[Rfam]
RNA sequence: CCGCCUGCCGUCUUGUAUGGCUUUUUAUUCCUAUGUGAUUCUACGUCACGCAACUUCAUAUAGGGAUUGAAGCCGUGCAAAACGCCGGCGC
Numbered sequence: 001c002c003g004c005c006u007g008c009c010g011u012c013u014u015g016u017a018u019g020g021c022u023u024u025u026u027a028u029u030c031c032u033a034u035g036u037g038a039u040u041c042u043a044c045g046u047c048a049c050g051c052a053a054c055u056u057c058a059u060a061u062a063g064g065g066a067u068u069g070a071a072g073c074c075g076u077g078c079a080a081a082a083c084g085c086c087g088g089c090g091c
Stems, first nucleotide, its partner, number of pairs: 002090004007086001009084003013080012027067012
The record is a 91-nucleotide RNA from Nothoprocta ornata, which matches "mir-135 microRNA precursor family" in Rfam. Its family is annotated with RISC complex and gene silencing by miRNA in the Gene Ontology. For this family Rfam cites "Identification of tissue-specific microRNAs from mouse" (Lagos-Quintana et al., Curr Biol, 2002). The base pairs follow the family's consensus structure, which was predicted with PFOLD.